[Rfam]
RNA sequence: UUACACCACUGGGGGUGCACCUCGAGGUGCUGAGAGGAACAUGGUGUUGUUCCAACCCUUUGAACUUGAUCUGGUUGGUACCAGCGUAAGGAAUGUGGGGAUCGAAUGAG
Numbered sequence: 001u002u003a004c005a006c007c008a009c010u011g012g013g014g015g016u017g018c019a020c021c022u023c024g025a026g027g028u029g030c031u032g033a034g035a036g037g038a039a040c041a042u043g044g045u046g047u048u049g050u051u052c053c054a055a056c057c058c059u060u061u062g063a064a065c066u067u068g069a070u071c072u073g074g075u076u077g078g079u080a081c082c083a084g085c086g087u088a089a090g091g092a093a094u095g096u097g098g099g100g101a102u103c104g105a106a107u108g109a110g
Stems, first nucleotide, its partner, number of pairs: 006098004011059004017030005037052005065090004071084004
Dot-bracket structure: .....((((.((((..(((((....)))))......(((((......)))))...)))).....((((..((((......))))..))))....))))............
RNA: TPP riboswitch aptamer (THI element)
Organism: Thermoflavimicrobium dichotomicum